Y RNA: a 97-nucleotide sequence from Homo sapiens. A search with the family's covariance model found it, with a score of 61 bits. Rfam describes the family as follows. Y RNAs are components of the Ro ribonucleoprotein particle (Ro RNP), in association with Ro60 and La proteins. The source organism's lineage runs through Eukaryota, Teleostomi, Tetrapoda, Catarrhini and Homo. Pairs were carried over by alignment from the consensus structure, which is taken from published work.
RNA sequence: GACUGGUCCAAGUGGUGUUUAUAACUAAUUGAUCACAACCAGUUACAGAUUUCUUUGUUCCUUCUCCAUUCUCACUGCUUCACUUGACUAGCCUUGA
Numbered sequence: 001g002a003c004u005g006g007u008c009c010a011a012g013u014g015g016u017g018u019u020u021a022u023a024a025c026u027a028a029u030u031g032a033u034c035a036c037a038a039c040c041a042g043u044u045a046c047a048g049a050u051u052u053c054u055u056u057g058u059u060c061c062u063u064c065u066c067c068a069u070u071c072u073c074a075c076u077g078c079u080u081c082a083c084u085u086g087a088c089u090a091g092c093c094u095u096g097a
Base pairs, nucleotide, nucleotide: 001093003091004090005089006088007087008086010085011084014081015080017075018074023059024058025057027055028054